[Rfam]
RNA sequence: GAAUGACAUGAUAAAUAGAAAAUGUUUCCCUAUCAGUUUGAUUGUCGUGAUGAUGGCAUCUCUAAGUAUUUGCUCUAUCUGAUCAUUA
Numbered sequence: 001g002a003a004u005g006a007c008a009u010g011a012u013a014a015a016u017a018g019a020a021a022a023u024g025u026u027u028c029c030c031u032a033u034c035a036g037u038u039u040g041a042u043u044g045u046c047g048u049g050a051u052g053a054u055g056g057c058a059u060c061u062c063u064a065a066g067u068a069u070u071u072g073c074u075c076u077a078u079c080u081g082a083u084c085a086u087u088a
Base pairs, nucleotide, nucleotide: 002087003086004085005084040060043058044057045056046055
This 88-nucleotide RNA sequence from Carya illinoinensis belongs to the Rfam family "Small nucleolar RNA Z102/R77". The organism belongs to Carya, within Eukaryota. The match comes from Rfam's covariance-model search (78 bits). Rfam 15.1 lists 1,346 matches to the family in 224 species. The base pairs follow the family's consensus structure, which was predicted with PFOLD. The family is grouped with related families in Rfam's "SNORD44 clan". The literature on the family includes a 2003 paper in Nucleic Acids Res by Chen et al., "The high diversity of snoRNAs in plants: identification and comparative study of 120 snoRNA genes from Oryza sativa".